Rfam assigns this 79-nucleotide RNA sequence from Crocodylus porosus to the family "Mammalian CPEB3 ribozyme". Gene Ontology term of the family: RNA nuclease activity. Lineage of the source: Eukaryota > Vertebrata > Tetrapoda > Crocodylidae > Crocodylus. A search with the family's covariance model found it, with a score of 35 bits. The base pairs follow the family's consensus structure, which is taken from published work.
RNA sequence: AGGUCGUAAGUUGGAAGCCACAGCAAGAAGCAUGCAUGGUGCAGUCCUGUCAGAUCCCAACAAAUUUGCAAAUUCUGCU
Number, nucleotide and partner (000 for none) at each position: 001a000002g000003g000004u000005c000006g000007u000008a000009a000010g000011u000012u000013g047014g046015a000016a000017g045018c044019c000020a000021c000022a079023g078024c077025a076026a000027g075028a074029a073030g042031c041032a040033u000034g000035c000036a000037u000038g000039g000040u032041g031042c030043a000044g018045u017046c014047c013048u000049g000050u000051c068052a067053g066054a065055u064056c000057c000058c000059a000060a000061c000062a000063a000064a055065u054066u053067u052068g051069c000070a000071a000072a000073u029074u028075c027076u025077g024078c023079u022